[Rfam]
RNA: JUMPstart RNA
RNA sequence: AAGCGUAUUGGUAGCAGUAAGCCAAGGGCGGUAGCGUU
Number, nucleotide and partner (000 for none) at each position: 001a000002a000003g000004c000005g000006u000007a000008u025009u024010g023011g022012u021013a000014g000015c000016a000017g000018u000019a000020a000021g012022c011023c010024a009025a008026g000027g000028g000029c000030g000031g000032u000033a000034g000035c000036g000037u000038u000